[Rfam]
RNA sequence: AAAAAAGCGAUGAAGAGAAAGAGUACCAAGGCGAAGUCUUUGUACAGAGAGCCCCGGCUGCUGAAAAGGGGUAAAGAAUAACCUUGGGAAUAUGGUCUUGGAGCUGCGCAUCGAAACCUCAUGUGGUUGUAGGCUGCGCCGGAACCCCGCACCCGUUAACGUGCUAGGGUAUAAACGCGAACCGCGUCGUACCUGAAGAGGUCAAUGUCGUAAGGCAUUUGAUAAAAUUGGGUGGUACCGCGUGAGUUCAGCUCUCGUCCCUUUG
Numbered sequence: 001a002a003a004a005a006a007g008c009g010a011u012g013a014a015g016a017g018a019a020a021g022a023g024u025a026c027c028a029a030g031g032c033g034a035a036g037u038c039u040u041u042g043u044a045c046a047g048a049g050a051g052c053c054c055c056g057g058c059u060g061c062u063g064a065a066a067a068g069g070g071g072u073a074a075a076g077a078a079u080a081a082c083c084u085u086g087g088g089a090a091u092a093u094g095g096u097c098u099u100g101g102a103g104c105u106g107c108g109c110a111u112c113g114a115a116a117c118c119u120c121a122u123g124u125g126g127u128u129g130u131a132g133g134c135u136g137c138g139c140c141g142g143a144a145c146c147c148c149g150c151a152c153c154c155g156u157u158a159a160c161g162u163g164c165u166a167g168g169g170u171a172u173a174a175a176c177g178c179g180a181a182c183c184g185c186g187u188c189g190u191a192c193c194u195g196a197a198g199a200g201g202u203c204a205a206u207g208u209c210g211u212a213a214g215g216c217a218u219u220u221g222a223u224a225a226a227a228u229u230g231g232g233u234g235g236u237a238c239c240g241c242g243u244g245a246g247u248u249c250a251g252c253u254c255u256c257g258u259c260c261c262u263u264u265g
Stems, first nucleotide, its partner, number of pairs: 007104002015099004026087006039075003051072005107138004112133001140155003201223005230261003240258003244254003
About this RNA:
This 265-nucleotide sequence from Paenibacillus radicis belongs to the Rfam family "T-box leader". Lineage of the source: Bacteria > Bacillati > Bacillota > Bacilli > Paenibacillus. It is annotated as a cis-regulatory leader. The match comes from Rfam's covariance-model search (114 bits). Rfam 15.1 lists 19,395 matches to the family in 1,923 species.